[Rfam]
RNA sequence: CGUGUCCGAGGAUAGAGUAAGCCGCCGUGAGGCGGCUGGUCGAGAAAUUCUCG
Numbered sequence: 001c002g003u004g005u006c007c008g009a010g011g012a013u014a015g016a017g018u019a020a021g022c023c024g025c026c027g028u029g030a031g032g033c034g035g036c037u038g039g040u041c042g043a044g045a046a047a048u049u050c051u052c053g
Base pairs, nucleotide, nucleotide: 020037021036022035023034024033025032026031
RNA: leuA-Halobacteria RNA